[Rfam]
This 137-nucleotide RNA from Acerihabitans arboris belongs to the Rfam family "Leucine operon leader". A reference for the family is Kolter and Yanofsky (1982), "Attenuation in amino acid biosynthetic operons", Annu Rev Genet. Lineage of the source: Bacteria > Pseudomonadota > Gammaproteobacteria > Enterobacterales > Acerihabitans. The family's consensus secondary structure is taken from published work. Rfam describes the family as follows. At least 6 amino acid operons are known to be regulated by attenuation. In each a leader sequence of 150-200 bp is found upstream of the first gene in the operon. This leader sequence can assume two different secondary structures known as the terminator and the anti-terminator structure. In each case the leader also codes for very short peptide sequence that is rich in the end product amino acid of the operon.
RNA sequence: AUCUAUAAUGUUCACUUCUUUCCGUCUACUAGGCCUACUACUACUCGCACUGUCGAUGCGCGGUACGCUGGUACACGGAGUUCAGAACUGACUCAUACGUCCCAGAUAUAAAACCCGCGCACUGCGCGGGUUUUUUU
Numbered sequence: 001a002u003c004u005a006u007a008a009u010g011u012u013c014a015c016u017u018c019u020u021u022c023c024g025u026c027u028a029c030u031a032g033g034c035c036u037a038c039u040a041c042u043a044c045u046c047g048c049a050c051u052g053u054c055g056a057u058g059c060g061c062g063g064u065a066c067g068c069u070g071g072u073a074c075a076c077g078g079a080g081u082u083c084a085g086a087a088c089u090g091a092c093u094c095a096u097a098c099g100u101c102c103c104a105g106a107u108a109u110a111a112a113a114c115c116c117g118c119g120c121a122c123u124g125c126g127c128g129g130g131u132u133u134u135u136u137u
Stems, first nucleotide, its partner, number of pairs: 002099001004097003008093001012091003022078004027073005039065004046060004110134011